RNA: HNH endonuclease-associated RNA and ORF (HEARO) RNA
Organism: Cyanobacteria bacterium FACHB-502
RNA sequence: GUCAGCACCCCGCACUAAAGUACGGGGCUUCAUGCCUCCGACUUGAGUUAGCUGACCAGCCUCAGGCUUAAUUGGCUACGUUUUCAAGGUCACGACACCUUAGAGUGCUUUCCAGCUUUAAGCUCUGUCGCUAACGAUUAAACAUCUCUACGAGGGGUAUAAGAAGUGUCGUUAGCCGAACAAGCCUUGAACACAUUGGCGAGGAACACAUUAC
Numbered sequence: 001g002u003c004a005g006c007a008c009c010c011c012g013c014a015c016u017a018a019a020g021u022a023c024g025g026g027g028c029u030u031c032a033u034g035c036c037u038c039c040g041a042c043u044u045g046a047g048u049u050a051g052c053u054g055a056c057c058a059g060c061c062u063c064a065g066g067c068u069u070a071a072u073u074g075g076c077u078a079c080g081u082u083u084u085c086a087a088g089g090u091c092a093c094g095a096c097a098c099c100u101u102a103g104a105g106u107g108c109u110u111u112c113c114a115g116c117u118u119u120a121a122g123c124u125c126u127g128u129c130g131c132u133a134a135c136g137a138u139u140a141a142a143c144a145u146c147u148c149u150a151c152g153a154g155g156g157g158u159a160u161a162a163g164a165a166g167u168g169u170c171g172u173u174a175g176c177c178g179a180a181c182a183a184g185c186c187u188u189g190a191a192c193a194c195a196u197u198g199g200c201g202a203g204g205a206a207c208a209c210a211u212u213a214c
Stems, first nucleotide, its partner, number of pairs: 001056006007049001009027002011024002014021002059200003064077002067074001080194002083191008095128002099122008109208001111205003130176009142167002145164003